[Rfam]
RNA sequence: GCAGCUGCGCGCCGCACAUAGCGAACUAUUCUUUCGCCUUUUACUAAAGAAUAUUGUGUCUUCGUCGCUGUUCAAACAACAUACGACAUUUUUGGAGGGUUUUUCUUCAUGAAAUCC
Number, nucleotide and partner (000 for none) at each position: 001g000002c000003a000004g077005c000006u075007g000008c000009g068010c067011g066012c000013c064014g061015c000016a059017c058018a057019u000020a000021g000022c000023g000024a000025a000026c000027u053028a052029u051030u050031c049032u048033u047034u046035c000036g000037c000038c000039u000040u000041u000042u000043a000044c000045u000046a034047a033048a032049g031050a030051a029052u028053a027054u000055u000056g000057u018058g017059u016060c000061u014062u000063c000064g013065u000066c011067g010068c009069u000070g000071u000072u000073c000074a000075a006076a000077c004078a000079a000080c000081a000082u000083a000084c000085g000086a000087c000088a000089u000090u000091u000092u000093u000094g000095g000096a000097g000098g116099g115100u114101u113102u112103u111104u000105c000106u000107u000108c000109a000110u000111g103112a102113a101114a100115u099116c098117c000
Shown here is a 117-nucleotide RNA sequence from Salvia splendens, a member of the family "U5 spliceosomal RNA". Taxonomically the source falls in core Calosphace (Eukaryota, lamiids, Mentheae, Salvia subgen. Calosphace). The family's RNA type in Rfam is spliceosomal small nuclear RNA. Rfam describes the family as follows. U5 RNA is a component of both types of known spliceosome. The precise function of this molecule is unknown, though it is known that the 5' loop is required for splice site selection and p220 binding, and that both the 3' stem-loop and the Sm site are important for Sm protein binding and cap methylation.